RNA sequence: UGGUAGAUGCACCCUGAUUCAACAUCCCCCAGCUGGCCUCGGCAAGACUGGGGGUUUCUACU
Number, nucleotide and partner (000 for none) at each position: 001u000002g013003g012004u011005a000006g000007a000008u000009g000010c000011a004012c003013c002014c000015u000016g000017a000018u000019u000020c000021a000022a000023c000024a000025u000026c054027c053028c052029c051030c050031a049032g048033c046034u045035g000036g043037c000038c000039u000040c000041g000042g000043c036044a000045a034046g033047a000048c032049u031050g030051g029052g028053g027054g026055u000056u000057u000058c000059u000060a000061c000062u000
RNA: Nitrogen stress-induced RNA 1
Organism: Pegethrix bostrychoides